[Rfam]
RNA sequence: GUCAUGCCUAGGCCGGCCAGCCGAAAGCGCGGAUACCCUUGCCGCGUUGGCAUGACUUCCAAUUUAAGGG
Numbered sequence: 001g002u003c004a005u006g007c008c009u010a011g012g013c014c015g016g017c018c019a020g021c022c023g024a025a026a027g028c029g030c031g032g033a034u035a036c037c038c039u040u041g042c043c044g045c046g047u048u049g050g051c052a053u054g055a056c057u058u059c060c061a062a063u064u065u066a067a068g069g070g
Stems, first nucleotide, its partner, number of pairs: 001056008011022003028046005036070006